The family of this 91-nucleotide RNA from Ornithinibacillus halophilus is "Glycine riboswitch aptamer".
[Rfam]
RNA sequence: AAGACUGCUGUGGGAGAGAACGUACUUCACGUCACCGAAGGGGCAAAUCGUAACCGAUGAAUCUCUCAGGUAAAAAGACUACAGCAGGACG
Numbered sequence: 001a002a003g004a005c006u007g008c009u010g011u012g013g014g015a016g017a018g019a020a021c022g023u024a025c026u027u028c029a030c031g032u033c034a035c036c037g038a039a040g041g042g043g044c045a046a047a048u049c050g051u052a053a054c055c056g057a058u059g060a061a062u063c064u065c066u067c068a069g070g071u072a073a074a075a076a077g078a079c080u081a082c083a084g085c086a087g088g089a090c091g
Stems, first nucleotide, its partner, number of pairs: 006086008020032004034071003037067002041065003047058002
Pairs were carried over by alignment from the consensus structure. The source organism's lineage runs through Bacteria, Bacillota, Bacilli, Caryophanales and Ornithinibacillus.